[Rfam]
RNA sequence: GGCUUCGCUCUUGCAAAGACCUGGGUAGCGGUGGCCAACGGCGGUCACCCCAAUCGACAAAGGCGUCAG
Numbered sequence: 001g002g003c004u005u006c007g008c009u010c011u012u013g014c015a016a017a018g019a020c021c022u023g024g025g026u027a028g029c030g031g032u033g034g035c036c037a038a039c040g041g042c043g044g045u046c047a048c049c050c051c052a053a054u055c056g057a058c059a060a061a062g063g064c065g066u067c068a069g
Stems, first nucleotide, its partner, number of pairs: 030049007